[Rfam]
RNA sequence: UGAGAGUUUGAGGCCACAACAGAAGUGUUUAUGGCACAGACUUGUCAGAUUCCAAUGAAUCUUCAAAUUCUGCU
Dot-bracket structure: .........[.[.[...(.((((((((.......))).].]]....((((((....)))))).....))))).)
The family of this 74-nucleotide RNA from Alligator mississippiensis is "Mammalian CPEB3 ribozyme". Lineage of the source: Eukaryota > Metazoa > Teleostomi > Sauria > Alligator. A search with the family's covariance model found it, with a score of 46 bits. The family's consensus secondary structure is taken from published work. Its family is annotated with RNA nuclease activity in the Gene Ontology. On this family, see Salehi-Ashtiani et al., Science 2006: "A genomewide search for ribozymes reveals an HDV-like sequence in the human CPEB3 gene".